The family of this 77-nucleotide RNA sequence from Cetobacterium somerae is "c-di-GMP-I riboswitch aptamer".
RNA sequence: AAGAAGUAAGGGCAAAGUAAGGGAAACUUUAUGACGCAAAACUAUAGGGCCUAUUAAUGUGGCAGCCAGGUGCAACA
Numbered sequence: 001a002a003g004a005a006g007u008a009a010g011g012g013c014a015a016a017g018u019a020a021g022g023g024a025a026a027c028u029u030u031a032u033g034a035c036g037c038a039a040a041a042c043u044a045u046a047g048g049g050c051c052u053a054u055u056a057a058u059g060u061g062g063c064a065g066c067c068a069g070g071u072g073c074a075a076c077a
Base pairs, nucleotide, nucleotide: 012037013036017032018031019030020029021028022027040071042069043068047067048066049063050062051061